The family of this 86-nucleotide RNA sequence from Astyanax mexicanus is "mir-363 microRNA precursor family".
It scores 79 bits against the family's covariance model.
Lineage of the source: Eukaryota > Eumetazoa > Euteleostomi > Otophysi > Astyanax.

RNA sequence: GCUGUUUUCGGGUGGAUGACUUUGCAAUUUUAACAAUACCAUGAAUCUUAAAUGAAAAAUUGCACGGUAUCCAUCUGUAAUCCGCC
Numbered sequence: 001g002c003u004g005u006u007u008u009c010g011g012g013u014g015g016a017u018g019a020c021u022u023u024g025c026a027a028u029u030u031u032a033a034c035a036a037u038a039c040c041a042u043g044a045a046u047c048u049u050a051a052a053u054g055a056a057a058a059a060u061u062g063c064a065c066g067g068u069a070u071c072c073a074u075c076u077g078u079a080a081u082c083c084g085c086c
Stems, first nucleotide, its partner, number of pairs: 009077009019068002023064009